[Rfam]
RNA sequence: CGGCUGUAGCCAUAUUUAACGGAGAAGUUAUCUGGUCGGUUGUUGUGUUUUUGGGAUCUUUGAAUUUGAAUCGUCGAUUGACAAAUCUGCUUACCGAACUUCUUACAUUC
Numbered sequence: 001c002g003g004c005u006g007u008a009g010c011c012a013u014a015u016u017u018a019a020c021g022g023a024g025a026a027g028u029u030a031u032c033u034g035g036u037c038g039g040u041u042g043u044u045g046u047g048u049u050u051u052u053g054g055g056a057u058c059u060u061u062g063a064a065u066u067u068g069a070a071u072c073g074u075c076g077a078u079u080g081a082c083a084a085a086u087c088u089g090c091u092u093a094c095c096g097a098a099c100u101u102c103u104u105a106c107a108u109u110c
Base pairs, nucleotide, nucleotide: 022104023103024102025101026100027099028098029097034091035090036089038087039086040085041084042082043081044080045079
This 110-nucleotide RNA sequence from Phtheirospermum japonicum belongs to the Rfam family "Small nucleolar RNA snoR109".
The source organism's lineage runs through Eukaryota, Viridiplantae, Streptophytina, asterids and Phtheirospermum.
It is annotated as an H/ACA-box small nucleolar RNA.
The base pairs follow the family's consensus structure, which was predicted with WAR.